[Rfam]
RNA: Mammalian CPEB3 ribozyme
Organism: Alligator sinensis
RNA sequence: UCAGUUUUAUAGGGUAUAGCAAACGUGCUCACAGCACAGCCUGUCAGAUUCCAACAAAUCUGUGAAUUCUGCU
Numbered sequence: 001u002c003a004g005u006u007u008u009a010u011a012g013g014g015u016a017u018a019g020c021a022a023a024c025g026u027g028c029u030c031a032c033a034g035c036a037c038a039g040c041c042u043g044u045c046a047g048a049u050u051c052c053a054a055c056a057a058a059u060c061u062g063u064g065a066a067u068u069c070u071g072c073u
Stems, first nucleotide, its partner, number of pairs: 013041002015038001018073004023068001025037003045062006